RNA: Small nucleolar RNA SNORA33
Organism: Erinaceus europaeus
RNA sequence: AAGCCAGUCAAUGAAUUUGUUUGCCUAAUUAGAUUGCUGCAGAAAUUUUUUAACAAGCUGGCAAAAAGUAAAGCCAUGGUAUAAGCCUUAGUGAUACUAGGGUCAUUACAGUCCCUGAAAGUGAAUAUAUGA
Numbered sequence: 001a002a003g004c005c006a007g008u009c010a011a012u013g014a015a016u017u018u019g020u021u022u023g024c025c026u027a028a029u030u031a032g033a034u035u036g037c038u039g040c041a042g043a044a045a046u047u048u049u050u051u052a053a054c055a056a057g058c059u060g061g062c063a064a065a066a067a068g069u070a071a072a073g074c075c076a077u078g079g080u081a082u083a084a085g086c087c088u089u090a091g092u093g094a095u096a097c098u099a100g101g102g103u104c105a106u107u108a109c110a111g112u113c114c115c116u117g118a119a120a121g122u123g124a125a126u127a128u129a130u131g132a
Base pairs, nucleotide, nucleotide: 003062004061005060006059007058016043017042018041019040020039075123076122085112086111089108090107091106093104094103095102
Dot-bracket structure: ..(((((........(((((..................)))))..............)))))............((........((..(((.(((......))).)))..)).........)).........